[Rfam]
RNA sequence: UUUGAGGCUGUAAACAUCCCCGACUGGAAGCUGUCGAUACGCAGAGCUUUCAGUCCGAUGUUUGCGGCCGCCAG
Number, nucleotide and partner (000 for none) at each position: 001u000002u073003u000004g071005a000006g069007g000008c067009u066010g065011u064012a063013a062014a061015c060016a059017u058018c057019c000020c000021c000022g000023a054024c053025u052026g051027g050028a049029a048030g047031c046032u045033g000034u000035c000036g000037a000038u000039a000040c000041g000042c000043a000044g000045a032046g031047c030048u029049u028050u027051c026052a025053g024054u023055c000056c000057g018058a017059u016060g015061u014062u013063u012064g011065c010066g009067g008068c000069c006070g000071c004072c000073a002074g000
The record is a 74-nucleotide sequence from Xiphophorus maculatus, which matches "mir-30 microRNA precursor family" in Rfam. Rfam describes the family as follows. This family consists of the mammalian microRNA (miRNA) precursor mir-30a. Animal miRNAs are transcribed as ~70nt precursors and subsequently processed by the Dicer enzyme to give a ~22nt product. It scores 61 bits against the family's covariance model.